[Rfam]
About this RNA: Rfam assigns this 62-nucleotide sequence from Candidatus Jettenia caeni to the family "Fluoride riboswitch aptamer (crcB RNA motif)". Its family is annotated with response to fluoride and positive regulation of gene expression in the Gene Ontology. On this family, see Ren et al., Nature 2012: "Fluoride ion encapsulation by Mg2+ ions and phosphates in a fluoride riboswitch". The base pairs follow the family's consensus structure, which is taken from published work. A search with the family's covariance model found it, with a score of 48 bits.
RNA sequence: GAAUUCUAAGGCGAUGGAGUUCGCCAAACUGCUACACGGUAGCUGAUAACUCCUAUUGAGGU
Number, nucleotide and partner (000 for none) at each position: 001g000002a000003a000004u000005u000006c000007u000008a000009a000010g025011g024012c023013g022014a000015u000016g053017g052018a051019g050020u049021u048022c013023g012024c011025c010026a000027a000028a000029c000030u000031g043032c042033u041034a040035c000036a000037c000038g000039g000040u034041a033042g032043c031044u000045g000046a000047u000048a021049a020050c019051u018052c017053c016054u000055a000056u000057u000058g000059a000060g000061g000062u000